[Rfam]
Source information: skipping-rope RNA: a 79-nucleotide RNA sequence from Mediterraneibacter catenae. The family's RNA type in Rfam is small RNA.
RNA sequence: UUUAUCCAAAAAUAGAACAGGCAGCUAUCACGCCCCAGCGGUCUUAAAGAGAUGCCGGAGUUCCACCCAGCUGGAUAAA
Number, nucleotide and partner (000 for none) at each position: 001u079002u078003u077004a076005u075006c074007c073008a072009a000010a000011a000012a028013u027014a026015g025016a000017a000018c000019a000020g064021g063022c000023a061024g000025c015026u014027a013028u012029c000030a000031c049032g043033c000034c041035c040036c000037a000038g000039c000040g035041g034042u000043c032044u000045u000046a000047a000048a000049g031050a000051g000052a000053u000054g071055c070056c000057g068058g067059a000060g000061u023062u000063c021064c020065a000066c000067c058068c057069a000070g055071c054072u008073g007074g006075a005076u004077a003078a002079a001